Background: This 106-nucleotide sequence from Pseudomonas mangrovi belongs to the Rfam family "Guanidine-I riboswitch aptamer". The organism belongs to Pseudomonas, within Bacteria.
[Rfam]
RNA sequence: GCAAUGGCCGACUAGGGUUCCGGCCCGUCGCGGAAGUGACGGGUGACUGGUCCGAGAGUCGACGACCUCCUUCGAGGUUACACGGCGGGACAAAAGCCCGGGAGAA
Numbered sequence: 001g002c003a004a005u006g007g008c009c010g011a012c013u014a015g016g017g018u019u020c021c022g023g024c025c026c027g028u029c030g031c032g033g034a035a036g037u038g039a040c041g042g043g044u045g046a047c048u049g050g051u052c053c054g055a056g057a058g059u060c061g062a063c064g065a066c067c068u069c070c071u072u073c074g075a076g077g078u079u080a081c082a083c084g085g086c087g088g089g090a091c092a093a094a095a096g097c098c099c100g101g102g103a104g105a106a
Stems, first nucleotide, its partner, number of pairs: 007063001009061004015053002020050002022047001023044008064079006081101001083104001087099003